[Rfam]
RNA sequence: CUCGGUGAUAUUGUCCUGUCACAGCAGUAGUGAUCCUUCUUACCGCUGUCACGGGACAUAACCACCGAG
Numbered sequence: 001c002u003c004g005g006u007g008a009u010a011u012u013g014u015c016c017u018g019u020c021a022c023a024g025c026a027g028u029a030g031u032g033a034u035c036c037u038u039c040u041u042a043c044c045g046c047u048g049u050c051a052c053g054g055g056a057c058a059u060a061a062c063c064a065c066c067g068a069g
Stems, first nucleotide, its partner, number of pairs: 003067004012058007022048004027043003
RNA: mir-1000 microRNA precursor family
Organism: Nezara viridula